[Rfam]
The record is a 67-nucleotide sequence from Strigamia maritima, which matches "mir-2 microRNA precursor family" in Rfam. A search with the family's covariance model found it, with a score of 50 bits.
RNA sequence: ACGCCCGUCAAUGUGGUUGUGUUGUGUAGACGUGAAACUCAUAUCACAGCCAUCUUGACGAGUUGAG
Numbered sequence: 001a002c003g004c005c006c007g008u009c010a011a012u013g014u015g016g017u018u019g020u021g022u023u024g025u026g027u028a029g030a031c032g033u034g035a036a037a038c039u040c041a042u043a044u045c046a047c048a049g050c051c052a053u054c055u056u057g058a059c060g061a062g063u064u065g066a067g
Base pairs, nucleotide, nucleotide: 006060007059008058009057010056011055013054014052015051016050017049018048019047020046021045025043026042027041